[Rfam]
RNA sequence: UACUAGCACAUAUGUCAAAUUCCUAAUUAACGUUUUUUAUAUUCAUCGUUUCUUAGAGCCGUAAUUGUGCUGAUAUCAAUAUCAGGGAAGAACAUACCAUAUAGAGGUGUCAAGUACACCGAACGAUCGUGGUGCUCCCUCAGCCACGGGCGUGCUUGGACGCUAUUCCCACAUAU
Numbered sequence: 001u002a003c004u005a006g007c008a009c010a011u012a013u014g015u016c017a018a019a020u021u022c023c024u025a026a027u028u029a030a031c032g033u034u035u036u037u038u039a040u041a042u043u044c045a046u047c048g049u050u051u052c053u054u055a056g057a058g059c060c061g062u063a064a065u066u067g068u069g070c071u072g073a074u075a076u077c078a079a080u081a082u083c084a085g086g087g088a089a090g091a092a093c094a095u096a097c098c099a100u101a102u103a104g105a106g107g108u109g110u111c112a113a114g115u116a117c118a119c120c121g122a123a124c125g126a127u128c129g130u131g132g133u134g135c136u137c138c139c140u141c142a143g144c145c146a147c148g149g150g151c152g153u154g155c156u157u158g159g160a161c162g163c164u165a166u167u168c169c170c171a172c173a174u175a176u
Stems, first nucleotide, its partner, number of pairs: 004072007023056004029050004085170005097159003106120005123153003128148002131145003
Small nucleolar RNA snR85: a 176-nucleotide RNA from Saccharomyces cerevisiae. Rfam links the family to the GO terms RNA processing and nucleolus. The organism belongs to Saccharomyces, within Eukaryota. The family is grouped with related families in Rfam's "SNORA5 clan". It is annotated as an H/ACA-box small nucleolar RNA.